[Rfam]
RNA: Small nucleolar RNA SNORA51
Organism: Thamnophis sirtalis
RNA sequence: UGCCUCCUUCAGCUUACCACAGGCAGCUGGGCCACCACCACUGGCUGUAUAGAAAGGGGAGGCACAGCAAAGAACCCCCCGUGCACCCCAGCCUGGCCGCCCCGUGCCUGAGCUGUUUGGUUUGUGGGGGCACAGGC
Numbered sequence: 001u002g003c004c005u006c007c008u009u010c011a012g013c014u015u016a017c018c019a020c021a022g023g024c025a026g027c028u029g030g031g032c033c034a035c036c037a038c039c040a041c042u043g044g045c046u047g048u049a050u051a052g053a054a055a056g057g058g059g060a061g062g063c064a065c066a067g068c069a070a071a072g073a074a075c076c077c078c079c080c081g082u083g084c085a086c087c088c089c090a091g092c093c094u095g096g097c098c099g100c101c102c103c104g105u106g107c108c109u110g111a112g113c114u115g116u117u118u119g120g121u122u123u124g125u126g127g128g129g130g131c132a133c134a135g136g137c
Base pairs, nucleotide, nucleotide: 002063003062004061005060006059007058008057020047021046022045026041028040029039030038075129076128077127078126080124089115090114091113094110095109096108097106